The family of this 80-nucleotide RNA sequence from Phaeobacter sp. CECT 5382 is "Singlet oxygen resistance RNA X".
On this family, see Peng et al., RNA Biol 2016: "Regulation of a polyamine transporter by the conserved 3' UTR-derived sRNA SorX confers resistance to singlet oxygen and organic hydroperoxides in Rhodobacter sphaeroides".
Lineage of the source: Bacteria > Pseudomonadati > Pseudomonadota > Roseobacteraceae > Phaeobacter.
The family has 8 seed sequences and 528 matches in Rfam 15.1.
By type it is a small RNA.
SorX (RSs2461)like SorY is a singlet oxygen induced sRNA that counteracts oxidative stress by targeting mRNA for a transporter in Rhodobacter.

RNA sequence: AGCGCAUGAAGACGGAGGCUAGCGCCUCACUUCAUACCUCCCUGUUGGACUUCGGCCGAGCUUAGUGCUCGGCCUUUUUU
Dot-bracket structure: .....((((((..................))))))..................((((((((.....))))))))......